[Rfam]
RNA sequence: GGAUUGAUGGUGUCACACAUACAUAGAGUCCUUGGAAAGCUAAACAAAAGGAAUGAAAAAUCAGUACUGUCACUGGCAUAGAACUGAGGUCA
Numbered sequence: 001g002g003a004u005u006g007a008u009g010g011u012g013u014c015a016c017a018c019a020u021a022c023a024u025a026g027a028g029u030c031c032u033u034g035g036a037a038a039g040c041u042a043a044a045c046a047a048a049a050g051g052a053a054u055g056a057a058a059a060a061u062c063a064g065u066a067c068u069g070u071c072a073c074u075g076g077c078a079u080a081g082a083a084c085u086g087a088g089g090u091c092a
Stems, first nucleotide, its partner, number of pairs: 002091004027054001029052002032047003
RNA: Small nucleolar RNA SNORD116